[Rfam]
RNA sequence: UGGCUUCAGCGAACAUUCAACGCUGUCGGUGAGUUUGAGUCAUCAUAGAAACCAUCGACCGUUGACUGUGCCUUGAGGUUUU
Number, nucleotide and partner (000 for none) at each position: 001u000002g081003g080004c078005u077006u076007c075008a074009g000010c000011g000012a000013a000014c068015a067016u000017u065018c064019a063020a062021c061022g060023c000024u000025g059026u058027c057028g056029g055030u054031g053032a000033g052034u051035u050036u049037g000038a000039g000040u000041c000042a000043u000044c000045a000046u000047a000048g000049a036050a035051a034052c033053c031054a030055u029056c028057g027058a026059c025060c022061g021062u020063u019064g018065a017066c000067u015068g014069u000070g000071c000072c000073u000074u008075g007076a006077g005078g004079u000080u003081u002082u000
A member of the RNA family "mir-181 microRNA precursor family" from Geotrypetes seraphini, 82 nucleotides long. A search with the family's covariance model found it, with a score of 73 bits. The family's consensus secondary structure was predicted with PFOLD. The organism belongs to Geotrypetes, within Eukaryota.